[Rfam]
RNA: Na+ riboswitch aptamer (DUF1646)
Organism: Clostridium luticellarii
RNA sequence: GGUUGAAUCAAAUGAUUUGAUUUCAAGAUAAUAUGACUUUUAGGGUGGAAAGUC
Numbered sequence: 001g002g003u004u005g006a007a008u009c010a011a012a013u014g015a016u017u018u019g020a021u022u023u024c025a026a027g028a029u030a031a032u033a034u035g036a037c038u039u040u041u042a043g044g045g046u047g048g049a050a051a052g053u054c
Base pairs, nucleotide, nucleotide: 003026004025005024006022007021008020009019010018011017035054036053037052038051039050040049041048